RNA sequence: CUCCCGCCUGCCCAGUGUUCAGACUACCUGUUCAUGACACUGCAGCUGAACAGUAGUCCGCACAUUGGUUAGGCUGAGUC
Numbered sequence: 001c002u003c004c005c006g007c008c009u010g011c012c013c014a015g016u017g018u019u020c021a022g023a024c025u026a027c028c029u030g031u032u033c034a035u036g037a038c039a040c041u042g043c044a045g046c047u048g049a050a051c052a053g054u055a056g057u058c059c060g061c062a063c064a065u066u067g068g069u070u071a072g073g074c075u076g077a078g079u080c
Base pairs, nucleotide, nucleotide: 012068013067014066015065016064017063018062020060022058023057024056025055026054028053029052030051031050033048034047

This 80-nucleotide sequence from Bagarius yarrelli belongs to the Rfam family "mir-199 microRNA precursor family". A reference for the family is Ambros (2001), "microRNAs: tiny regulators with great potential", Cell. Rfam links the family to the GO terms miRNA-mediated post-transcriptional gene silencing and RISC complex.